[Rfam]
RNA: Small nucleolar RNA snR60/Z15/Z230/Z193/J17
RNA sequence: GAAGCUCAAGUGAUGAUCAUUUGCAUAGUUCAACUGACAAUAUAUUGUGAUUAUAAAUCUUUUAUUGGUCUUUCGCUCUUAUCUGAUGAGCUUU
Numbered sequence: 001g002a003a004g005c006u007c008a009a010g011u012g013a014u015g016a017u018c019a020u021u022u023g024c025a026u027a028g029u030u031c032a033a034c035u036g037a038c039a040a041u042a043u044a045u046u047g048u049g050a051u052u053a054u055a056a057a058u059c060u061u062u063u064a065u066u067g068g069u070c071u072u073u074c075g076c077u078c079u080u081a082u083c084u085g086a087u088g089a090g091c092u093u094u
Base pairs, nucleotide, nucleotide: 004091005090006089007088008087